[Rfam]
RNA sequence: CAUGUUGAAUGAUGAAAUAAGUGUUGGUAGGGACAUCCGAGUAUUAAUGAUGAAAUGCCAACCUUUCUGACAUCUCAUG
Numbered sequence: 001c002a003u004g005u006u007g008a009a010u011g012a013u014g015a016a017a018u019a020a021g022u023g024u025u026g027g028u029a030g031g032g033a034c035a036u037c038c039g040a041g042u043a044u045u046a047a048u049g050a051u052g053a054a055a056u057g058c059c060a061a062c063c064u065u066u067c068u069g070a071c072a073u074c075u076c077a078u079g
Stems, first nucleotide, its partner, number of pairs: 001079004
RNA: Small nucleolar RNA SNORD74
Organism: Albula glossodonta